Shown here is a 110-nucleotide RNA from Actinophytocola xanthii, a member of the family "TPP riboswitch aptamer (THI element)". Vitamin B(1) in its active form thiamin pyrophosphate (TPP) is an essential coenzyme that is synthesised by coupling of pyrimidine and thiazole moieties in bacteria. For this family Rfam cites "Ligand binding and gene control characteristics of tandem riboswitches in Bacillus anthracis" (Welz and Breaker, RNA, 2007).

Nucleotides: 110
Stems, first nucleotide, its partner, number of pairs: 006098001008096003011061004017033005040055005066091004072085004
Number, partner (000 for none) and nucleotide at each position: 001000g002000g003000u004000g005000g006098u007000c008096c009095g010094c011061a012060c013059g014058g015000g016000a017033g018032u019031c020030c021029g022000g023000a024000g025000g026000u027000a028000c029021c030020g031019g032018g033017c034000u035000g036000a037000g038000a039000g040055g041054g042053g043052a044051u045000c046000c047000g048000c049000c050000g051044a052043u053042c054041c055040c056000g057000a058014c059013c060012g061011u062000c063000g064000a065000a066091c067090c068089u069088g070000a071000u072085c073084c074083g075082g076000a077000u078000c079000a080000u081000g082075c083074c084073g085072g086000c087000g088069c089068a090067g091066g092000g093000a094010g095009c096008g097000u098006g099000a100000u101000g102000u103000g104000c105000g106000u107000u108000g109000a110000g
Notes: A search with the family's covariance model found it, with a score of 63 bits. Taxonomically the source falls in Actinophytocola (Bacteria, Actinomycetota, Actinomycetes, Pseudonocardiaceae). Pairs were carried over by alignment from the consensus structure, which is taken from published work.